This 136-nucleotide sequence from Hymenochirus boettgeri belongs to the Rfam family "Small nucleolar RNA SNORA5". The family is grouped with related families in Rfam's "SNORA5 clan". ACA5 is a member of the H/ACA class of snoRNA that guide the sites of modification of uridines to pseudouridines. NCBI's taxonomy places the organism under Eukaryota, Opisthokonta, Craniata, Vertebrata, Hymenochirus.
[Rfam]
RNA sequence: AGCAAUCGUGUCAAAUUCAGUAUUGUCUAUAAUUGGCAUGUACUGGCCAAAAUGGUUGCAACAGUAAUUUUGUAGUUCAUGGGCCCCAAUAGAUUCCUUAUGUGGAAAUUGGGGAUAAAAUGGUCUACGGACAUAA
Numbered sequence: 001a002g003c004a005a006u007c008g009u010g011u012c013a014a015a016u017u018c019a020g021u022a023u024u025g026u027c028u029a030u031a032a033u034u035g036g037c038a039u040g041u042a043c044u045g046g047c048c049a050a051a052a053u054g055g056u057u058g059c060a061a062c063a064g065u066a067a068u069u070u071u072g073u074a075g076u077u078c079a080u081g082g083g084c085c086c087c088a089a090u091a092g093a094u095u096c097c098u099u100a101u102g103u104g105g106a107a108a109u110u111g112g113g114g115a116u117a118a119a120a121u122g123g124u125c126u127a128c129g130g131a132c133a134u135a136a
Base pairs, nucleotide, nucleotide: 002059003058004057005056018045019044020043021042022041023040024038025037026036027035072128073127074126075125077123084114085113086112087111088110089109090108